This 62-nucleotide RNA belongs to the Rfam family "RAGATH-18 RNA". The sequence is in the family's curated seed alignment. The family's RNA type in Rfam is small RNA. Rfam's curators write: Actinobacteria, Firmicutes, Fusobacteria, Thermotogae (1 example).

[Rfam]
RNA sequence: CCUUUGGAGAACCAUAACAAAUCGUAGUAGCUUAGGCAAAGUGAGGUUCUAUGAAAAAGGAA
Numbered sequence: 001c002c003u004u005u006g007g008a009g010a011a012c013c014a015u016a017a018c019a020a021a022u023c024g025u026a027g028u029a030g031c032u033u034a035g036g037c038a039a040a041g042u043g044a045g046g047u048u049c050u051a052u053g054a055a056a057a058a059g060g061a062a
Stems, first nucleotide, its partner, number of pairs: 001060005009049005022044003030037002